[Rfam]
RNA sequence: ACCCCCUCGCAAGAGGAGGUUAAAACUGUGUGUUAAUAGUUGCUGUCCUUUUUGGCCUGGGCACAAUGGUUAGUGAAUC
Dot-bracket structure: (((.((((....)))).)))............(((((.((((..((((..........)))).)))).)))))......
Notes:
The family of this 79-nucleotide RNA sequence is "L13-Bacteroidia ribosomal protein leader".